Shown here is an 82-nucleotide RNA sequence from Bombyx mori, a member of the family "mir-2807 microRNA precursor family". The family's consensus secondary structure was predicted with RNAalifold. A search with the family's covariance model found it, with a score of 58 bits. A reference for the family is Liu et al. (2010), "MicroRNAs of Bombyx mori identified by Solexa sequencing", BMC Genomics.

RNA sequence: UUAACUUAACUUUGGAUGGGGUCGGAACGUUUUGUCUACGUUUGCCGCUAGGGGCGCUGUUCCAACUGCAUACAAACAGUUA
Numbered sequence: 001u002u003a004a005c006u007u008a009a010c011u012u013u014g015g016a017u018g019g020g021g022u023c024g025g026a027a028c029g030u031u032u033u034g035u036c037u038a039c040g041u042u043u044g045c046c047g048c049u050a051g052g053g054g055c056g057c058u059g060u061u062c063c064a065a066c067u068g069c070a071u072a073c074a075a076a077c078a079g080u081u082a
Base pairs, nucleotide, nucleotide: 011076012075013074014073016071018069020067021066022065024063025062026061027060028059029058035053036052037051040048041047